This 184-nucleotide RNA from Pontibacillus chungwhensis belongs to the Rfam family "Lysine riboswitch aptamer". Taxonomically the source falls in Pontibacillus chungwhensis (Bacteria, Bacillati, Bacillota, Bacillaceae).
RNA sequence: CGAUGAGGUAGAGGCGCAUUUAGCAUUAGUACCCAGUUUGAGGAUGACAACAAUGAGAACUGGUGAAAGGGCUACUUGCCGAAGUGUAACGAAGGGUCCCCUUCCUUACGCUGGUGCAUUCCCAAAUAGAGAAUGUACUGUCAUGCAAACCGAACGUUGGAUUGCAUGAUGCGCUACUGAUCGA
Numbered sequence: 001c002g003a004u005g006a007g008g009u010a011g012a013g014g015c016g017c018a019u020u021u022a023g024c025a026u027u028a029g030u031a032c033c034c035a036g037u038u039u040g041a042g043g044a045u046g047a048c049a050a051c052a053a054u055g056a057g058a059a060c061u062g063g064u065g066a067a068a069g070g071g072c073u074a075c076u077u078g079c080c081g082a083a084g085u086g087u088a089a090c091g092a093a094g095g096g097u098c099c100c101c102u103u104c105c106u107u108a109c110g111c112u113g114g115u116g117c118a119u120u121c122c123c124a125a126a127u128a129g130a131g132a133a134u135g136u137a138c139u140g141u142c143a144u145g146c147a148a149a150c151c152g153a154a155c156g157u158u159g160g161a162u163u164g165c166a167u168g169a170u171g172c173g174c175u176a177c178u179g180a181u182c183g184a
Base pairs, nucleotide, nucleotide: 007178008177009176010175011174016079017078018077021074022073023072024071033063034062035061036060037059038058039057083112084111085110086109087108088107089106091104092103093102094101113139114138115137116136117135118134119133120132121131123129141169142168143167144166145165146164147163